[Rfam]
RNA sequence: ACCCGGGCACGACCCGGGGCCCGCCGGCGUCCCCGGCCCGCCCCCGGGACCGACCCGUGGUCCAAUCCUGAGGGA
Numbered sequence: 001a002c003c004c005g006g007g008c009a010c011g012a013c014c015c016g017g018g019g020c021c022c023g024c025c026g027g028c029g030u031c032c033c034c035g036g037c038c039c040g041c042c043c044c045c046g047g048g049a050c051c052g053a054c055c056c057g058u059g060g061u062c063c064a065a066u067c068c069u070g071a072g073g074g075a
Stems, first nucleotide, its partner, number of pairs: 001061003004057004013048007

A member of the RNA family "L31-Corynebacteriaceae ribosomal protein leader" from Corynebacterium sphenisci, 75 nucleotides long. For this family Rfam cites "Discovery of 20 novel ribosomal leader candidates in bacteria and archaea" (Eckert and Weinberg, BMC Microbiol, 2020). The family's RNA type in Rfam is cis-regulatory leader. Its Rfam clan is "Ribosomal Protein L31 Leader clan".